[Rfam]
RNA: c-di-AMP riboswitch aptamer (ydaO/yuaA leader)
Organism: Gordonia aichiensis
RNA sequence: ACCGCUCAAUCGCCCGGACAAUAGAGUCCUGGCGUACCGGGGAACCACUCAUUUUUUCGGAGUUUUCCGAAUGGGGGUGAAUCGCGCUCUCGAUCCGGGUGUCCGCACUCGAAUCGCCUGUGCGUAGGGCCAUUUCUUCCGGCCCGAAUCCGACAGCUAACCCGGUCGGCGGUAGAGGGAGAACAA
Dot-bracket structure: ..((((....((((................)))).((((((....(...........................)(((.....((((..................................))))..((((...........))))...))).........)))))).))))...............